[Rfam]
RNA: TPP riboswitch aptamer (THI element)
RNA sequence: AAAAUGACAAUGGGGAGCUUGCUGAAGCAGGCUGAGAGUAAGCUGUAUCGCUUAGACCCAUCGAACCUGAUUUGGGUAAUGCCAACGCAGGGAAAUAUGGUGCAGAGGAUG
Numbered sequence: 001a002a003a004a005u006g007a008c009a010a011u012g013g014g015g016a017g018c019u020u021g022c023u024g025a026a027g028c029a030g031g032c033u034g035a036g037a038g039u040a041a042g043c044u045g046u047a048u049c050g051c052u053u054a055g056a057c058c059c060a061u062c063g064a065a066c067c068u069g070a071u072u073u074g075g076g077u078a079a080u081g082c083c084a085a086c087g088c089a090g091g092g093a094a095a096u097a098u099g100g101u102g103c104a105g106a107g108g109a110u111g
Base pairs, nucleotide, nucleotide: 007098009096011060012059013058014057017032018031019030020029021028039054040053041052042051043050066091067090068089069088072085073084074083075082